c-di-GMP-I riboswitch aptamer: a 74-nucleotide RNA sequence from Desulfopila aestuarii. The family's consensus secondary structure is taken from published work. Taxonomically the source falls in Desulfopila aestuarii (Bacteria, Thermodesulfobacteriota, Desulfobulbales, Desulfocapsaceae).

[Rfam]
RNA sequence: AUUUGAAAAAUCCAAACUCACCGAAGGAUGGGGACGGAAAGCUGAGGGUCUGCAAAGAUAACCUGGCUACCAUU
Numbered sequence: 001a002u003u004u005g006a007a008a009a010a011u012c013c014a015a016a017c018u019c020a021c022c023g024a025a026g027g028a029u030g031g032g033g034a035c036g037g038a039a040a041g042c043u044g045a046g047g048g049u050c051u052g053c054a055a056a057g058a059u060a061a062c063c064u065g066g067c068u069a070c071c072a073u074u
Base pairs, nucleotide, nucleotide: 012037013036017032018031019030020029022027040068041067042066043065045064046063047062048059049058050057